[Rfam]
Rfam assigns this 102-nucleotide RNA from Striga asiatica to the family "Small nucleolar RNA Z107/R87". The family's RNA type in Rfam is C/D-box small nucleolar RNA. A search with the family's covariance model found it, with a score of 86 bits. For this family Rfam cites "Identification of 66 box C/D snoRNAs in Arabidopsis thaliana: extensive gene duplications generated multiple isoforms predicting new ribosomal RNA 2'-O-methylation sites" (Barneche et al., J Mol Biol, 2001). The base pairs follow the family's consensus structure, which was predicted with RNAfold. Its family is annotated with nucleolus and RNA processing in the Gene Ontology. Taxonomically the source falls in Striga (Eukaryota, eudicotyledons, Lamiales, Orobanchaceae).

RNA sequence: GAUUGCAAUGACGACUCGGAAAAUUCAAGCUCAACAGACCGGAUUGCAGGUUUCAAUCUCUUGUUUACUUGCAUGUCGAUAACCCCGCUGAGCUGAGCAAUU
Numbered sequence: 001g002a003u004u005g006c007a008a009u010g011a012c013g014a015c016u017c018g019g020a021a022a023a024u025u026c027a028a029g030c031u032c033a034a035c036a037g038a039c040c041g042g043a044u045u046g047c048a049g050g051u052u053u054c055a056a057u058c059u060c061u062u063g064u065u066u067a068c069u070u071g072c073a074u075g076u077c078g079a080u081a082a083c084c085c086c087g088c089u090g091a092g093c094u095g096a097g098c099a100a101u102u
Base pairs, nucleotide, nucleotide: 001102002101003100004099005098006097